[Rfam]
RNA sequence: GUGCAAAACGGAGAUGACAUUCCUCCAUAACCGCCAUUCGGCUGAUGAUGUCUAUGCACUU
Numbered sequence: 001g002u003g004c005a006a007a008a009c010g011g012a013g014a015u016g017a018c019a020u021u022c023c024u025c026c027a028u029a030a031c032c033g034c035c036a037u038u039c040g041g042c043u044g045a046u047g048a049u050g051u052c053u054a055u056g057c058a059c060u061u
Stems, first nucleotide, its partner, number of pairs: 010026004016052006033042003
Dot-bracket structure: .........[[[[..((((((.]]]]......(((....)))....)))))).........
Rfam assigns this 61-nucleotide RNA from Brenneria goodwinii to the family "Fluoride riboswitch aptamer (crcB RNA motif)". Taxonomically the source falls in Brenneria (Bacteria, Pseudomonadati, Gammaproteobacteria, Enterobacterales). Rfam links the family to the GO terms response to fluoride and positive regulation of gene expression.